[Rfam]
The family of this 184-nucleotide part of an RNA from Fusarium piperis is "Ascomycota telomerase RNA". It scores 359 bits against the family's covariance model. The pairing is the family consensus, mapped onto this sequence.
RNA sequence: CCCACCUGAGGGUGCCUAUAUACUGGACGGGGUCCAGAUGGCCCUAAGGGAUCCCUCGACUCUAACCUGAACAAGGCGAGCCUGAGAUGAUAGGGUGGUUUUUAUGGAUGUCUUUUGUCCACCCGUUAACGUCCUCCGCAAUUCUUGCUACAAGAUGGAGAGAUUACAAAAACUGGUCCUUGUU
Dot-bracket structure: ....(((..(((.(((.......................)))))).)))....(((((.(((.....(....)....)))..))))..).................(((((.((((((.............((((((.....((((.....)))).)))).))..))))))))..)))......